[Rfam]
RNA sequence: UUUAUUGCAGUGAUGAUUGCUAUUGUGGAUUAGAGUUUUUGAUCCGGUUGAUCUCAACCACUAGUUGAAGACUAACCCUUGGCUGUCUGAGCCAUGGA
Numbered sequence: 001u002u003u004a005u006u007g008c009a010g011u012g013a014u015g016a017u018u019g020c021u022a023u024u025g026u027g028g029a030u031u032a033g034a035g036u037u038u039u040u041g042a043u044c045c046g047g048u049u050g051a052u053c054u055c056a057a058c059c060a061c062u063a064g065u066u067g068a069a070g071a072c073u074a075a076c077c078c079u080u081g082g083c084u085g086u087c088u089g090a091g092c093c094a095u096g097g098a
Base pairs, nucleotide, nucleotide: 001098002097003096004095005094007092008091036070037069038068039067043063046059047058048057

A member of the RNA family "Small nucleolar RNA Z157/R69/R10" from Camphora micrantha, 98 nucleotides long. Gene Ontology terms of the family: nucleolus and RNA processing. The match comes from Rfam's covariance-model search (59 bits). Its Rfam clan is "SNORD52 clan". It is annotated as a C/D-box small nucleolar RNA.